A member of the RNA family "Eukaryotic large subunit ribosomal RNA" from Plasmodium falciparum, 523 nucleotides of a longer RNA. The organism belongs to Plasmodium falciparum, within Eukaryota. The base pairs follow the family's consensus structure, which is taken from published work.
RNA sequence: AUUUUCGAAAGAUCUCUCAGGAUCGCUGGAGUUGAUUAAUAUAAUUUUACCAGGUAGAGAUAAUGAUUAGAGGAAUCAGGGAAAUCGUUUUCCUUGACCUAUUCUCAAACUCCCAAUAGGUAAAAAGGGCGAAAUAACUCAACUUGUAUUUCACUCAUAUUAAAUAAAAUAACUCCAAGUGGGCCAUUUUUGGUAAGCAGAACUGGCGAUGAGGGAUGCUCCUAACGCUUGGAUAAGGUGCCUAAAUAUUCGCUCAUGAGAUCCCAUAAAAGGUGUUGGUUCAUAAUGACAGUAGGACGGUGGUCAUGGAAGUCGAAAUCCGCUAAGGAGUGUGUAACAACUCACCUACCGAAUGAACUAGCCCUGAAAAUGGAUGGCGCUAAAGCGGAUUACCGAUACCAAGCCAUAAAAAGAACAGAAAAAAAUUAUUUUUUUUUUAGAAUCUUUUUAUGAGUAGAAAAUCGUGGGGUUUGUGUUGAAGCGAAAUACGUGAGUUUUCGUGGAACAUCUCCCUAGUGCAGAU
Numbered sequence: 001a002u003u004u005u006c007g008a009a010a011g012a013u014c015u016c017u018c019a020g021g022a023u024c025g026c027u028g029g030a031g032u033u034g035a036u037u038a039a040u041a042u043a044a045u046u047u048u049a050c051c052a053g054g055u056a057g058a059g060a061u062a063a064u065g066a067u068u069a070g071a072g073g074a075a076u077c078a079g080g081g082a083a084a085u086c087g088u089u090u091u092c093c094u095u096g097a098c099c100u101a102u103u104c105u106c107a108a109a110c111u112c113c114c115a116a117u118a119g120g121u122a123a124a125a126a127g128g129g130c131g132a133a134a135u136a137a138c139u140c141a142a143c144u145u146g147u148a149u150u151u152c153a154c155u156c157a158u159a160u161u162a163a164a165u166a167a168a169a170u171a172a173c174u175c176c177a178a179g180u181g182g183g184c185c186a187u188u189u190u191u192g193g194u195a196a197g198c199a200g201a202a203c204u205g206g207c208g209a210u211g212a213g214g215g216a217u218g219c220u221c222c223u224a225a226c227g228c229u230u231g232g233a234u235a236a237g238g239u240g241c242c243u244a245a246a247u248a249u250u251c252g253c254u255c256a257u258g259a260g261a262u263c264c265c266a267u268a269a270a271a272g273g274u275g276u277u278g279g280u281u282c283a284u285a286a287u288g289a290c291a292g293u294a295g296g297a298c299g300g301u302g303g304u305c306a307u308g309g310a311a312g313u314c315g316a317a318a319u320c321c322g323c324u325a326a327g328g329a330g331u332g333u334g335u336a337a338c339a340a341c342u343c344a345c346c347u348a349c350c351g352a353a354u355g356a357a358c359u360a361g362c363c364c365u366g367a368a369a370a371u372g373g374a375u376g377g378c379g380c381u382a383a384a385g386c387g388g389a390u391u392a393c394c395g396a397u398a399c400c401a402a403g404c405c406a407u408a409a410a411a412a413g414a415a416c417a418g419a420a421a422a423a424a425a426u427u428a429u430u431u432u433u434u435u436u437u438u439a440g441a442a443u444c445u446u447u448u449u450a451u452g453a454g455u456a457g458a459a460a461a462u463c464g465u466g467g468g469g470u471u472u473g474u475g476u477u478g479a480a481g482c483g484a485a486a487u488a489c490g491u492g493a494g495u496u497u498u499c500g501u502g503g504a505a506c507a508u509c510u511c512c513c514u515a516g517u518g519c520a521g522a523u
Stems, first nucleotide, its partner, number of pairs: 001462006011024005027177007045125007057113001058111002064107003069102001071100003076097006083090001127156003131152005183207004188202005212223003227404005237394003246391001248390001251387003271365003275362010292349005298322003304316002323327001328343001332341002405452009463518001465515005472507003481501002488495002